Shown here is a 65-nucleotide RNA from Oryctolagus cuniculus, a member of the family "Small nucleolar RNA SNORD42". The source organism's lineage runs through Eukaryota, Eumetazoa, Gnathostomata, Theria and Oryctolagus. From the family's description: snoRNA U42 is found in intron 3 of the ribosomal protein L23a (RPL23a) gene in humans and is also present in mice. The literature on the family includes a 2002 paper in Mol Cell Biol by Galardi et al., "Purified box C/D snoRNPs are able to reproduce site-specific 2'-O-methylation of target RNA in vitro". Pairs were carried over by alignment from the consensus structure, which was predicted with PFOLD.
RNA sequence: UUGCAAAUGAUGGAAAACGCACUAUUUGGAAAAGAAUGACACCUACAAAGGAACCACUGAUGCGC
Numbered sequence: 001u002u003g004c005a006a007a008u009g010a011u012g013g014a015a016a017a018c019g020c021a022c023u024a025u026u027u028g029g030a031a032a033a034g035a036a037u038g039a040c041a042c043c044u045a046c047a048a049a050g051g052a053a054c055c056a057c058u059g060a061u062g063c064g065c
Stems, first nucleotide, its partner, number of pairs: 002064004